[Rfam]
RNA sequence: UUGACGGUGAACUCCCACUCGCCCUGCGGACCGGCCAGCACCUCGCCGCCGAAGUGGUCGCCGUCGGCGAGCACGCCGAGGGCCGUCUGGUCGCCGAACUCGCCGACGCCGAUCUUGUUGACCUUGCCGUGCGCGAUCAGGAACACGGUGUCGGCCCGCUGGCCGGACUCGACGAUCAGGUCGCCGGGCGCGUACUCGCGCUGCACGAACUUCAGCGAGAGCGCGGUGAGCACCGCCUCGUCGUCGUACCCGCGCAGCAGCGGCAGCUCGCACAGCUCCUGGGGGAUCACCCGGAUCUCGGCGCCGGUGUUGGUGAAGGUCACCCGGCCGUCGCCGACCGCGUAGCUCAGGCGCCGGUUGACCCGGUAGGCACCGCCCGCCGCCUGCACCCACGGCAGGACCUUGAGCAGCCACCGCGAGGAGAUGCCCUGCAUCUGCGGCACGGACUUGGUCGUCGUGGCCAGGUUCCUGGCCGCCGCCGUCGCCAAGCUCGAUUGCGCACGACCCGA
Numbered sequence: 001u002u003g004a005c006g007g008u009g010a011a012c013u014c015c016c017a018c019u020c021g022c023c024c025u026g027c028g029g030a031c032c033g034g035c036c037a038g039c040a041c042c043u044c045g046c047c048g049c050c051g052a053a054g055u056g057g058u059c060g061c062c063g064u065c066g067g068c069g070a071g072c073a074c075g076c077c078g079a080g081g082g083c084c085g086u087c088u089g090g091u092c093g094c095c096g097a098a099c100u101c102g103c104c105g106a107c108g109c110c111g112a113u114c115u116u117g118u119u120g121a122c123c124u125u126g127c128c129g130u131g132c133g134c135g136a137u138c139a140g141g142a143a144c145a146c147g148g149u150g151u152c153g154g155c156c157c158g159c160u161g162g163c164c165g166g167a168c169u170c171g172a173c174g175a176u177c178a179g180g181u182c183g184c185c186g187g188g189c190g191c192g193u194a195c196u197c198g199c200g201c202u203g204c205a206c207g208a209a210c211u212u213c214a215g216c217g218a219g220a221g222c223g224c225g226g227u228g229a230g231c232a233c234c235g236c237c238u239c240g241u242c243g244u245c246g247u248a249c250c251c252g253c254g255c256a257g258c259a260g261c262g263g264c265a266g267c268u269c270g271c272a273c274a275g276c277u278c279c280u281g282g283g284g285g286a287u288c289a290c291c292c293g294g295a296u297c298u299c300g301g302c303g304c305c306g307g308u309g310u311u312g313g314u315g316a317a318g319g320u321c322a323c324c325c326g327g328c329c330g331u332c333g334c335c336g337a338c339c340g341c342g343u344a345g346c347u348c349a350g351g352c353g354c355c356g357g358u359u360g361a362c363c364c365g366g367u368a369g370g371c372a373c374c375g376c377c378c379g380c381c382g383c384c385u386g387c388a389c390c391c392a393c394g395g396c397a398g399g400a401c402c403u404u405g406a407g408c409a410g411c412c413a414c415c416g417c418g419a420g421g422a423g424a425u426g427c428c429c430u431g432c433a434u435c436u437g438c439g440g441c442a443c444g445g446a447c448u449u450g451g452u453c454g455u456c457g458u459g460g461c462c463a464g465g466u467u468c469c470u471g472g473c474c475g476c477c478g479c480c481g482u483c484g485c486c487a488a489g490c491u492c493g494a495u496u497g498c499g500c501a502c503g504a505c506c507c508g509a
Base pairs, nucleotide, nucleotide: 006390007389008388009387011385014382019327021325025322026321027319031315035313036312037311038310039309040308041307042306045305047303048302049301050300051299052298054233055232058229059228060227061226062225063224064223065111066110067109068108075103077102078101079100080099083096085094086093117222118221119220122217126213129210130209131206133204134203135202140197143196149192150191154189155188156187157186158185160183162177166173236294237293240290241289243287244286245285249283250282251281252280254278256277257276258275260271261270262269329342330341331340353377355375356374357373362370363369391431392430394428395427396426397425402423403422404421407417408416437476438475439474440473444469445468446467447465448464449463450462451461452460477508478507480503481502482501486497487496488495

Overview:
This 509-nucleotide RNA from Umezawaea tangerina belongs to the Rfam family "Saccharopolyspora sRNA 350". A reference for the family is Liu et al. (2013), "Prediction and characterization of small non-coding RNAs related to secondary metabolites in Saccharopolyspora erythraea", PLoS One. The source organism's lineage runs through Bacteria, Bacillati, Actinomycetes, Pseudonocardiaceae and Umezawaea. The family's RNA type in Rfam is antisense RNA. Its family is annotated with regulation of secondary metabolite biosynthetic process in the Gene Ontology.